The family of this 111-nucleotide RNA sequence from Clostridium ljungdahlii is "SAM riboswitch aptamer (S box leader)". Rfam links the family to the GO term regulation of gene expression. From the family's description: The SAM riboswitch is found upstream of a number of genes which code for proteins involved in methionine or cysteine biosynthesis in Gram-positive bacteria. NCBI's taxonomy places the organism under Bacteria, Bacillota, Clostridia, Eubacteriales, Clostridium.

[Rfam]
RNA sequence: UUCUUAUCAAGAGUGACGGAGGGACUGGCCCUAUGAUGUCCAGCAACCUGAAUGCAAAUGAAAUGUGUUUAAUGGUGCUAAUUCCAGCAGGAGAAACCUGAGAGAUGAGAA
Numbered sequence: 001u002u003c004u005u006a007u008c009a010a011g012a013g014u015g016a017c018g019g020a021g022g023g024a025c026u027g028g029c030c031c032u033a034u035g036a037u038g039u040c041c042a043g044c045a046a047c048c049u050g051a052a053u054g055c056a057a058a059u060g061a062a063a064u065g066u067g068u069u070u071a072a073u074g075g076u077g078c079u080a081a082u083u084c085c086a087g088c089a090g091g092a093g094a095a096a097c098c099u100g101a102g103a104g105a106u107g108a109g110a111a
Base pairs, nucleotide, nucleotide: 001111002110003109004108005107006106007105008104013041015040016039017038021031022030023029025087026086027085028084042079043078044077045076047075048074049071050070051069052068053067054066055065056064083103088100089099090098091097